RNA: mir-22 microRNA precursor family
Organism: Salmo salar
RNA sequence: CGUUCUUCACUGGCUAGCUUUAUGUCUCCCUCCCCACCGUAAAGCUGCCAGUUGAAGAGCUGU
Numbered sequence: 001c002g003u004u005c006u007u008c009a010c011u012g013g014c015u016a017g018c019u020u021u022a023u024g025u026c027u028c029c030c031u032c033c034c035c036a037c038c039g040u041a042a043a044g045c046u047g048c049c050a051g052u053u054g055a056a057g058a059g060c061u062g063u
Base pairs, nucleotide, nucleotide: 003059004058005057006056007055008054012049013048014047016046017045018044019043020042021041022040